[Rfam]
RNA sequence: GUUGGGAAAUGAUGUGAAGUUACCCUAGAUAUCAAAGGCACUAGCUAUGCUGAAUGUCUUUAUUUGCACGUCAGUCUGAUCCCAUA
Numbered sequence: 001g002u003u004g005g006g007a008a009a010u011g012a013u014g015u016g017a018a019g020u021u022a023c024c025c026u027a028g029a030u031a032u033c034a035a036a037g038g039c040a041c042u043a044g045c046u047a048u049g050c051u052g053a054a055u056g057u058c059u060u061u062a063u064u065u066g067c068a069c070g071u072c073a074g075u076c077u078g079a080u081c082c083c084a085u086a
Base pairs, nucleotide, nucleotide: 003084004083005082006081007080
Overview:
Small nucleolar RNA Z122: an 86-nucleotide sequence from Jatropha curcas. Taxonomically the source falls in Jatropha (Eukaryota, Streptophytina, Euphyllophyta, Magnoliopsida). The literature on the family includes a 2003 paper in Nucleic Acids Res by Chen et al., "The high diversity of snoRNAs in plants: identification and comparative study of 120 snoRNA genes from Oryza sativa". The family's consensus secondary structure was predicted with PFOLD.